The record is an 89-nucleotide sequence from Arabidopsis lyrata, which matches "MIR173 microRNA precursor family" in Rfam. Rfam's curators put it in the seed alignment.

RNA sequence: UAAGUACUUUCGCUUGCAGAGAGAAAUCACAGUGGUCAAAAGUUAAAGUCUCUUUCCUCUGUGAUUCUCUGUGCAAGUGGAAGAGCUUG
Numbered sequence: 001u002a003a004g005u006a007c008u009u010u011c012g013c014u015u016g017c018a019g020a021g022a023g024a025a026a027u028c029a030c031a032g033u034g035g036u037c038a039a040a041a042g043u044u045a046a047a048g049u050c051u052c053u054u055u056c057c058u059c060u061g062u063g064a065u066u067c068u069c070u071g072u073g074c075a076a077g078u079g080g081a082a083g084a085g086c087u088u089g
Stems, first nucleotide, its partner, number of pairs: 001089005007083012020070006027064006034057002039055003

Its family is annotated with miRNA-mediated post-transcriptional gene silencing and RISC complex in the Gene Ontology.